Shown here is an 87-nucleotide RNA from Ruminococcus difficilis, a member of the family "c-di-GMP-I riboswitch aptamer". A search with the family's covariance model found it, with a score of 66 bits. Taxonomically the source falls in Ruminococcus (Bacteria, Bacillati, Bacillota, Eubacteriales).
[Rfam]
RNA sequence: UAUUAAAAAGGGCAAACUCGCUGAAAAGCGGGGACGCAAAGCUCUGGUGUCUAAAUAGCGAUUCUAUAUGACCGACCGGCUGCAUAG
Number, nucleotide and partner (000 for none) at each position: 001u000002a000003u000004u000005a000006a000007a000008a000009a000010g000011g000012g037013c036014a000015a000016a000017c032018u031019c030020g029021c028022u027023g000024a000025a000026a000027a022028g021029c020030g019031g018032g017033g000034a000035c000036g013037c012038a000039a000040a081041g080042c079043u078044c000045u000046g077047g076048u075049g072050u071051c070052u000053a000054a000055a000056u066057a065058g064059c000060g000061a000062u000063u000064c058065u057066a056067u000068a000069u000070g051071a050072c049073c000074g000075a048076c047077c046078g043079g042080c041081u040082g000083c000084a000085u000086a000087g000